[Rfam]
RNA sequence: AUCGAAACGAAGCACAGCGCGGGAGGCUCACAUGUUCAUGGAUACGGUGGUGAUCGCCGGCAUCGGCACGGUGCUACUGAUGGGCGCCUUCUUCGUUGGCGUCGGUUAUUUCAUCUGGAGCGAUUCGCACAAGCGCAGGCAGGGCUAAUCGGUUCAGUAACGGGCACGCAAGGCAAUUUGGGCGACUUCGGUCGCCUUUUUUUCGC
Numbered sequence: 001a002u003c004g005a006a007a008c009g010a011a012g013c014a015c016a017g018c019g020c021g022g023g024a025g026g027c028u029c030a031c032a033u034g035u036u037c038a039u040g041g042a043u044a045c046g047g048u049g050g051u052g053a054u055c056g057c058c059g060g061c062a063u064c065g066g067c068a069c070g071g072u073g074c075u076a077c078u079g080a081u082g083g084g085c086g087c088c089u090u091c092u093u094c095g096u097u098g099g100c101g102u103c104g105g106u107u108a109u110u111u112c113a114u115c116u117g118g119a120g121c122g123a124u125u126c127g128c129a130c131a132a133g134c135g136c137a138g139g140c141a142g143g144g145c146u147a148a149u150c151g152g153u154u155c156a157g158u159a160a161c162g163g164g165c166a167c168g169c170a171a172g173g174c175a176a177u178u179u180g181g182g183c184g185a186c187u188u189c190g191g192u193c194g195c196c197u198u199u200u201u202u203u204c205g206c
Base pairs, nucleotide, nucleotide: 011097012096013095047057048056049055075084077082164174165173167172180197181196182195183194184193185192186191